[Rfam]
RNA sequence: UAUUGUUUGGCCUGGUUUAGAAUUCCUACGCUUUACCUUUUUUCAGAACUGGCAAAGCGUUUGGAUUCUGAAUCCGGACGAGCA
Number, nucleotide and partner (000 for none) at each position: 001u000002a000003u000004u000005g000006u000007u000008u000009g000010g000011c077012c076013u000014g074015g073016u072017u071018u070019a069020g068021a067022a000023u065024u064025c063026c000027u000028a060029c059030g058031c057032u056033u055034u054035a000036c052037c051038u000039u000040u000041u000042u000043u000044c000045a000046g000047a000048a000049c000050u000051g037052g036053c000054a034055a033056a032057g031058c030059g029060u028061u000062u000063g025064g024065a023066u000067u021068c020069u019070g018071a017072a016073u015074c014075c000076g012077g011078a000079c000080g000081a000082g000083c000084a000
A member of the RNA family "mir-927 microRNA precursor family" from Rhynchophorus ferrugineus, 84 nucleotides long.
NCBI's taxonomy places the organism under Eukaryota, Neoptera, Cucujiformia, Curculionidae, Rhynchophorus.
Pairs were carried over by alignment from the consensus structure, which was predicted with RNAalifold.
A search with the family's covariance model found it, with a score of 68 bits.